RNA: Lysine riboswitch aptamer
RNA sequence: CUGUAAUAUAGAGGCUGCAGUUACAAUAAGUACCAUAGAAUAUAAUUUAGGGGUUAGAAAUUCUAUGGGAAAGGUGUAACUGCCGAAACAUGAUAUCCUCCCUAAGAUUUCAUGUUGGGGAUGUACCUAAUAGGUCCAUCACUGCGAUUAGUUGUGAAUACCCAGCCCUCUAAUAGAGCGCUAUAUUACAC
Numbered sequence: 001c002u003g004u005a006a007u008a009u010a011g012a013g014g015c016u017g018c019a020g021u022u023a024c025a026a027u028a029a030g031u032a033c034c035a036u037a038g039a040a041u042a043u044a045a046u047u048u049a050g051g052g053g054u055u056a057g058a059a060a061u062u063c064u065a066u067g068g069g070a071a072a073g074g075u076g077u078a079a080c081u082g083c084c085g086a087a088a089c090a091u092g093a094u095a096u097c098c099u100c101c102c103u104a105a106g107a108u109u110u111c112a113u114g115u116u117g118g119g120g121a122u123g124u125a126c127c128u129a130a131u132a133g134g135u136c137c138a139u140c141a142c143u144g145c146g147a148u149u150a151g152u153u154g155u156g157a158a159u160a161c162c163c164a165g166c167c168c169u170c171u172a173a174u175a176g177a178g179c180g181c182u183a184u185a186u187u188a189c190a191c
Stems, first nucleotide, its partner, number of pairs: 006186006017083009033068008087116007095108003117143002120140004125135003145176001147174005